The record is a 72-nucleotide sequence from Amphibalanus amphitrite, which matches "mir-34 microRNA precursor family" in Rfam. Lineage of the source: Eukaryota > Metazoa > Ecdysozoa > Amphibalaninae > Amphibalanus. Rfam's curators write: Human mir-34a was discovered computationally and later experimentally verified. The mature sequence is excised from the 5' arm of the hairpin.
RNA sequence: GUUGCGCUGGCAGUGUGGUUAGCUGGUUGUGUGCUCUGAUACCACGACCACUAUCGACACUACCAUUGCAGC
Number, nucleotide and partner (000 for none) at each position: 001g000002u071003u070004g069005c068006g067007c000008u000009g064010g063011c000012a061013g060014u059015g058016u057017g000018g055019u000020u053021a052022g051023c000024u050025g049026g048027u047028u046029g045030u044031g043032u000033g000034c000035u000036c000037u000038g000039a000040u000041a000042c000043c031044a030045c029046g028047a027048c026049c025050a024051c022052u021053a020054u000055c018056g000057a016058c015059a014060c013061u012062a000063c010064c009065a000066u000067u006068g005069c004070a003071g002072c000